[Rfam]
RNA sequence: UUGAAGUGGACGGAAUAAGUUCCUUGCGGAACUUUAAGUCGGGUUGGUAAAAAUCCUUUAUGAUGGUGAUGUAUCACUAGACAAUAACCGGAUGGGUAAAGUCUUUAAAAUGAUCGAGGGGAAAAUUAACCGUAUCCUCUCGUUGGUCUAAGCUCCCACAGAGUGGUAGUGGUCUCAAGUGAGGCUUAACGUAUGCGUGAACCAAAGAAGUUCUCCUUAGAGUGUGUGUUGUUUACCCAACACACUGUCCCUAUGGGGGGCCAACAUAGGUCCA
Numbered sequence: 001u002u003g004a005a006g007u008g009g010a011c012g013g014a015a016u017a018a019g020u021u022c023c024u025u026g027c028g029g030a031a032c033u034u035u036a037a038g039u040c041g042g043g044u045u046g047g048u049a050a051a052a053a054u055c056c057u058u059u060a061u062g063a064u065g066g067u068g069a070u071g072u073a074u075c076a077c078u079a080g081a082c083a084a085u086a087a088c089c090g091g092a093u094g095g096g097u098a099a100a101g102u103c104u105u106u107a108a109a110a111u112g113a114u115c116g117a118g119g120g121g122a123a124a125a126u127u128a129a130c131c132g133u134a135u136c137c138u139c140u141c142g143u144u145g146g147u148c149u150a151a152g153c154u155c156c157c158a159c160a161g162a163g164u165g166g167u168a169g170u171g172g173u174c175u176c177a178a179g180u181g182a183g184g185c186u187u188a189a190c191g192u193a194u195g196c197g198u199g200a201a202c203c204a205a206a207g208a209a210g211u212u213c214u215c216c217u218u219a220g221a222g223u224g225u226g227u228g229u230u231g232u233u234u235a236c237c238c239a240a241c242a243c244a245c246u247g248u249c250c251c252u253a254u255g256g257g258g259g260g261c262c263a264a265c266a267u268a269g270g271u272c273c274a
Stems, first nucleotide, its partner, number of pairs: 009040003017034007041055002044052002065078005080103003087097003112148003115142008152170003156166004171186006199213004215256002218253003224245008258273005
RNA: Citrus tristeza virus replication signal
Organism: Closterovirus tristezae